[Rfam]
RNA sequence: GGUUCCAUAGCUUCGUGGUUCAGCGUUCGCUUCUCAAGCGAGUGGUCGGUGGUUCGAUUCCACCUGGUGCCG
Numbered sequence: 001g002g003u004u005c006c007a008u009a010g011c012u013u014c015g016u017g018g019u020u021c022a023g024c025g026u027u028c029g030c031u032u033c034u035c036a037a038g039c040g041a042g043u044g045g046u047c048g049g050u051g052g053u054u055c056g057a058u059u060c061c062a063c064c065u066g067g068u069g070c071c072g
Base pairs, nucleotide, nucleotide: 001071002070003069005067006066007065010024011023012022026042027041028040029039030038048064049063050062051061052060
This 72-nucleotide sequence from Plasmopara halstedii belongs to the Rfam family "tRNA". From the family's description: Transfer RNA (tRNA) molecules are approximately 80 nucleotides in length. A search with the family's covariance model found it, with a score of 50 bits.